A member of the RNA family "Small nucleolar RNA SNORD89" from Apteryx australis, 111 nucleotides long. snoRNA HBII-289 belongs to the family of C/D snoRNAs. The base pairs follow the family's consensus structure, which was predicted with RNAalifold. A search with the family's covariance model found it, with a score of 102 bits. Taxonomically the source falls in Apteryx (Eukaryota, Sarcopterygii, Archosauria, Theropoda).
[Rfam]
RNA sequence: GCUGAGGAAUGAUGACAAUAAAAGGCCGAAUUGCAGUGCUUCCAUAAGCAGUUUGCUCUCCUUGGAUGCACGAUGACAAAGUCUGAAGCGAAUCAUUAGUCUGACCUCAGU
Number, nucleotide and partner (000 for none) at each position: 001g111002c110003u109004g108005a107006g106007g105008a000009a000010u000011g000012a000013u000014g101015a100016c099017a000018a000019u000020a000021a000022a000023a000024g000025g034026c033027c000028g000029a000030a000031u000032u000033g026034c025035a097036g096037u095038g094039c000040u000041u091042c090043c088044a000045u086046a000047a084048g083049c000050a000051g071052u070053u000054u068055g067056c000057u065058c064059u000060c000061c000062u000063u000064g058065g057066a000067u055068g054069c000070a052071c051072g000073a000074u000075g082076a000077c000078a000079a000080a000081g000082u075083c048084u047085g000086a045087a000088g043089c000090g042091a041092a000093u000094c038095a037096u036097u035098a000099g016100u015101c014102u000103g000104a000105c007106c006107u005108c004109a003110g002111u001